The family of this 105-nucleotide RNA sequence from Magnetospira sp. QH-2 is "rpsB sRNA". Taxonomically the source falls in Magnetospira (Bacteria, Pseudomonadota, Alphaproteobacteria, Thalassospiraceae). The match comes from Rfam's covariance-model search (48 bits). The base pairs follow the family's consensus structure, which is taken from published work. The literature on the family includes a 2009 paper in BMC Genomics by Meyer et al., "Identification of candidate structured RNAs in the marine organism 'Candidatus Pelagibacter ubique'".

[Rfam]
RNA sequence: CGCACGCGGGCUCGCGGCGGCGGCGCAAAUUCGUCGUCUUGUCGCUCCGGUGUUCCUGUUGGAGGAACUCUCGUCCGCGGAGGCUUAACCGGAAAAGGAACAGUA
Numbered sequence: 001c002g003c004a005c006g007c008g009g010g011c012u013c014g015c016g017g018c019g020g021c022g023g024c025g026c027a028a029a030u031u032c033g034u035c036g037u038c039u040u041g042u043c044g045c046u047c048c049g050g051u052g053u054u055c056c057u058g059u060u061g062g063a064g065g066a067a068c069u070c071u072c073g074u075c076c077g078c079g080g081a082g083g084c085u086u087a088a089c090c091g092g093a094a095a096a097g098g099a100a101c102a103g104u105a
Base pairs, nucleotide, nucleotide: 001082003080005079006078007077008076009075010074014045015044025032052068053067054066055065056064057063